[Rfam]
RNA sequence: AUAAUGAUACUUCCGUCCAGCCACAGUUCAUCGCAAUGGGGGCGGCUUGCAGCGAUCCUGGAAGAGGUUUGAACCCUAUGA
Numbered sequence: 001a002u003a004a005u006g007a008u009a010c011u012u013c014c015g016u017c018c019a020g021c022c023a024c025a026g027u028u029c030a031u032c033g034c035a036a037u038g039g040g041g042g043c044g045g046c047u048u049g050c051a052g053c054g055a056u057c058c059u060g061g062a063a064g065a066g067g068u069u070u071g072a073a074c075c076c077u078a079u080g081a
Stems, first nucleotide, its partner, number of pairs: 012078001013045006046064003050060003065077003
RNA: pemK RNA
Organism: Cohnella xylanilytica